[Rfam]
RNA: mir-927 microRNA precursor family
Organism: Dendroctonus ponderosae
RNA sequence: UGGGGGCUGCCUGGUUUAGAAUUCCUACGCUUUACCGUGGCUCCUUCAGUUGGUAAAGCGUUUGGAUUCUGAAUCGGGCGGCUC
Dot-bracket structure: .........(((((((((((.(((..(((((((.((...............)).)))))))..))).)))))))))))......